[Rfam]
RNA sequence: GCCCUGUGGUUGCUGGACACUGGUUUGUGCGUACAGUGCUUCAGUGGUUAGAAACGGGCCAAAAGCGAUACUGUGAUUUAUGCAUGGAGCCUGUGGUACAUGAACAGCCUCCAUAGCCCAGUCACAGUUACAGAC
Numbered sequence: 001g002c003c004c005u006g007u008g009g010u011u012g013c014u015g016g017a018c019a020c021u022g023g024u025u026u027g028u029g030c031g032u033a034c035a036g037u038g039c040u041u042c043a044g045u046g047g048u049u050a051g052a053a054a055c056g057g058g059c060c061a062a063a064a065g066c067g068a069u070a071c072u073g074u075g076a077u078u079u080a081u082g083c084a085u086g087g088a089g090c091c092u093g094u095g096g097u098a099c100a101u102g103a104a105c106a107g108c109c110u111c112c113a114u115a116g117c118c119c120a121g122u123c124a125c126a127g128u129u130a131c132a133g134a135c
Base pairs, nucleotide, nucleotide: 001059002058003057004056007050008049010047011046012045013044014043015042016041017040019037020036021035022034071127073125074124075123076122077121078120082117083116084114085113086112087111089109091107092106093105094104

Rfam assigns this 135-nucleotide RNA from Cuculus canorus to the family "Small nucleolar RNA SNORA84".
It is annotated as an H/ACA-box small nucleolar RNA.
NCBI's taxonomy places the organism under Eukaryota, Vertebrata, Euteleostomi, Neognathae, Cuculus.